The family of this 93-nucleotide RNA from Hydrogeniiclostridium mannosilyticum is "Glycine riboswitch aptamer".

[Rfam]
RNA sequence: GGAUGUGGCUCUGGAGAAUCCCGUUUACGGGGGCCGAAGGUGUAAGACGCGGAGACGCGCUAAUCUCUCAGGCAAAAGGACAGAGUGAAAAAC
Numbered sequence: 001g002g003a004u005g006u007g008g009c010u011c012u013g014g015a016g017a018a019u020c021c022c023g024u025u026u027a028c029g030g031g032g033g034c035c036g037a038a039g040g041u042g043u044a045a046g047a048c049g050c051g052g053a054g055a056c057g058c059g060c061u062a063a064u065c066u067c068u069c070a071g072g073c074a075a076a077a078g079g080a081c082a083g084a085g086u087g088a089a090a091a092a093c
Base pairs, nucleotide, nucleotide: 006088008086009085010084011083012082013081020031021030022029023028033073034072035071036069037068040067042065046060
It scores 60 bits against the family's covariance model. For this family Rfam cites "A glycine-dependent riboswitch that uses cooperative binding to control gene expression" (Mandal et al., Science, 2004). Pairs were carried over by alignment from the consensus structure.